[Rfam]
RNA sequence: UUAAACUACUAGGGGAGCUAGUAAGCUGAGAUGACGGUAUGUCAGACCCUUAUAACCUGAAUUGGUUAGUACCAACGUAGGAAAGUAGUAUUUUAGCCUU
Numbered sequence: 001u002u003a004a005a006c007u008a009c010u011a012g013g014g015g016a017g018c019u020a021g022u023a024a025g026c027u028g029a030g031a032u033g034a035c036g037g038u039a040u041g042u043c044a045g046a047c048c049c050u051u052a053u054a055a056c057c058u059g060a061a062u063u064g065g066u067u068a069g070u071a072c073c074a075a076c077g078u079a080g081g082a083a084a085g086u087a088g089u090a091u092u093u094u095a096g097c098c099u100u
Stems, first nucleotide, its partner, number of pairs: 006088005011050004017026003033043004056081004062075004

The record is a 100-nucleotide RNA sequence from Staphylococcus sp. HMSC071G07, which matches "TPP riboswitch aptamer (THI element)" in Rfam. A search with the family's covariance model found it, with a score of 79 bits. The family's consensus secondary structure is taken from published work.